[Rfam]
RNA: Makes More Granules Regulator RNA (mmgR)
RNA sequence: CAGUCCUGCCUUUCAGGCAUCCUCUCCCAAAAACUUCUCAAGCCGGCCUUCGGGUCGGCUUUUUUCUUGCGUAGC
Numbered sequence: 001c002a003g004u005c006c007u008g009c010c011u012u013u014c015a016g017g018c019a020u021c022c023u024c025u026c027c028c029a030a031a032a033a034c035u036u037c038u039c040a041a042g043c044c045g046g047c048c049u050u051c052g053g054g055u056c057g058g059c060u061u062u063u064u065u066c067u068u069g070c071g072u073a074g075c
Base pairs, nucleotide, nucleotide: 008018009017010016011015040061041060042059043058044057045056046055047054048053